[Rfam]
Nucleotides: 106
Base pairs, nucleotide, nucleotide: 006094007093008092009091010090011057012056013055014054017030018029019028020027021026037051038050039049040048041047063086064085065084067080068079069078070077
Number, partner (000 for none) and nucleotide at each position: 001000a002000u003000a004000c005000u006094g007093u008092a009091c010090u011057a012056g013055g014054g015000g016000a017030g018029u019028c020027g021026a022000u023000u024000g025000a026021u027020c028019g029018g030017c031000u032000g033000a034000g035000a036000g037051u038050g039049g040048a041047c042000u043000g044000a045000a046000a047041g048040u049039c050038c051037a052000g053000a054014c055013c056012c057011u058000u059000u060000g061000a062000a063086c064085c065084u066000g067080u068079a069078c070077g071000u072000u073000c074000a075000u076000g077070c078069g079068u080067g081000c082000g083000a084065a085064g086063g087000a088000a089000g090010a091009g092008u093007a094006c095000u096000g097000a098000a099000g100000c101000c102000a103000a104000a105000g106000a